[Rfam]
RNA sequence: CUCCCCGAAAUGCAUUUAGGUGCAGCGUCGCGUGUUUCUUGCCGGAGGUAGAGCUACUGGAUGGUCUAGGGGGCCCACAAGCUUACCGAAAUCAGCCAAACUCCGAAUGCCGGUAAGUGAGAGCGCGGCAGUGAGACUGCGGGCGAUAAGGUUCGUAGUCGAGAGGGAAACAACCCAGAACACCAGCUAAGGUCCCCAAGCGUGUGCUAAGUGGGAAAGGAUGUGGAGUCGCACAGACAACCAGGAGGUUGGCUUAGAAGCAGCCACCCUUUAAAGAGUGCGUAAUAGCUCACUGGUCAAGUGAUUCUGCGCCGACAAUGUAACGGGGCUCAAGCACACCACCGAAGCUGUGUCAUUCACGCUAUAGCCCGCCGAUCGUCUACGGACGGUCGGCCAGGUGCGUGGAUGGGUAGGGGAGCGUCGUGUGCCGGAGGAAGCGGCGGGGGAACCCAGCCGUGGACGGCACACGAGUGAGAAU
Numbered sequence: 001c002u003c004c005c006c007g008a009a010a011u012g013c014a015u016u017u018a019g020g021u022g023c024a025g026c027g028u029c030g031c032g033u034g035u036u037u038c039u040u041g042c043c044g045g046a047g048g049u050a051g052a053g054c055u056a057c058u059g060g061a062u063g064g065u066c067u068a069g070g071g072g073g074c075c076c077a078c079a080a081g082c083u084u085a086c087c088g089a090a091a092u093c094a095g096c097c098a099a100a101c102u103c104c105g106a107a108u109g110c111c112g113g114u115a116a117g118u119g120a121g122a123g124c125g126c127g128g129c130a131g132u133g134a135g136a137c138u139g140c141g142g143g144c145g146a147u148a149a150g151g152u153u154c155g156u157a158g159u160c161g162a163g164a165g166g167g168a169a170a171c172a173a174c175c176c177a178g179a180a181c182a183c184c185a186g187c188u189a190a191g192g193u194c195c196c197c198a199a200g201c202g203u204g205u206g207c208u209a210a211g212u213g214g215g216a217a218a219g220g221a222u223g224u225g226g227a228g229u230c231g232c233a234c235a236g237a238c239a240a241c242c243a244g245g246a247g248g249u250u251g252g253c254u255u256a257g258a259a260g261c262a263g264c265c266a267c268c269c270u271u272u273a274a275a276g277a278g279u280g281c282g283u284a285a286u287a288g289c290u291c292a293c294u295g296g297u298c299a300a301g302u303g304a305u306u307c308u309g310c311g312c313c314g315a316c317a318a319u320g321u322a323a324c325g326g327g328g329c330u331c332a333a334g335c336a337c338a339c340c341a342c343c344g345a346a347g348c349u350g351u352g353u354c355a356u357u358c359a360c361g362c363u364a365u366a367g368c369c370c371g372c373c374g375a376u377c378g379u380c381u382a383c384g385g386a387c388g389g390u391c392g393g394c395c396a397g398g399u400g401c402g403u404g405g406a407u408g409g410g411u412a413g414g415g416g417a418g419c420g421u422c423g424u425g426u427g428c429c430g431g432a433g434g435a436a437g438c439g440g441c442g443g444g445g446g447a448a449c450c451c452a453g454c455c456g457u458g459g460a461c462g463g464c465a466c467a468c469g470a471g472u473g474a475g476a477a478u
Stems, first nucleotide, its partner, number of pairs: 001418006011024005026131001027129007036122001038117008051104001052102002058098003062094004069087002071084004135160010165176003180353004185349003191343003200340001202339006219313002223310010240297005246270003251265003271275001276291001280289002354408008419473001421470010437457005442451003
The family of this 478-nucleotide part of an RNA from Jatrophihabitans endophyticus is "Bacterial large subunit ribosomal RNA".